The family of this 103-nucleotide RNA from Paenibacillus mucilaginosus is "Purine riboswitch aptamer".

RNA sequence: CGUUUAACAUUCGAAUAAUCUCGUAUAAUGUCGGGAAUAUGGCCCGAAUAGUUUCUACCCGAAAACCUUAAAUUUUUGGACUACGAGUAAGCGUUUGAUGAAG
Numbered sequence: 001c002g003u004u005u006a007a008c009a010u011u012c013g014a015a016u017a018a019u020c021u022c023g024u025a026u027a028a029u030g031u032c033g034g035g036a037a038u039a040u041g042g043c044c045c046g047a048a049u050a051g052u053u054u055c056u057a058c059c060c061g062a063a064a065a066c067c068u069u070a071a072a073u074u075u076u077u078g079g080a081c082u083a084c085g086a087g088u089a090a091g092c093g094u095u096u097g098a099u100g101a102a103g
Stems, first nucleotide, its partner, number of pairs: 020087006029050002031047005059079007